[Rfam]
RNA sequence: UACUAGGUUAGUGCAAAAGUAAUUGCAGGUUUUGCCACUGAAAGUAAUGGCAAAACCUGCAAUUACUUUUGCACCAACCUAAUA
Dot-bracket structure: ((.((((((.(((((((((((((((((((((((((((.((....)).))))))))))))))))))))))))))).)))))).))